[Rfam]
RNA sequence: AGCUUUGCAUGACAACGAGAGAGAGCACGCCUGUCUGCACUCAUGAAAUGGACAUGAUUGUGUACAAGAGUGCUUUCUCUCGGUGUCAUAUGAUC
Dot-bracket structure: .........(((((.((..((.(.((((.(.(((.............................))).).)))).).))..)).))))).......

Rfam assigns this 95-nucleotide RNA from Papaver somniferum to the family "MIR535 microRNA precursor family". Pairs were carried over by alignment from the consensus structure, which was predicted with RNAalifold. For this family Rfam cites "Conservation and divergence of microRNAs and their functions in Euphorbiaceous plants" (Zeng et al., Nucleic Acids Res, 2010). Gene Ontology terms of the family: RISC complex and miRNA-mediated post-transcriptional gene silencing. NCBI's taxonomy places the organism under Eukaryota, Streptophytina, Tracheophyta, Papaveroideae, Papaver.